[Rfam]
RNA sequence: GAAAAUUUGCUCUUUUAGUAUUUCUCCAGUAGGUUUUCUCACGGAGAAAGCCCCC
Dot-bracket structure: ...............................(((((((((...)))))))))...
Rfam assigns this 55-nucleotide RNA from Salvelinus namaycush to the family "U7 small nuclear RNA". About the family: Animal histone pre-mRNAs are spliced by a different mechanism than nuclear pre-mRNAs and self-splicing introns. This processing involves the U7 snRNP, which contains only one RNA species: U7. The 5' end of U7 RNA is thought to base-pair to a conserved spacer element downstream of the cleavage site in histone pre-mRNA. This family contains a number of annotated U7 pseudogenes. The match comes from Rfam's covariance-model search (49 bits).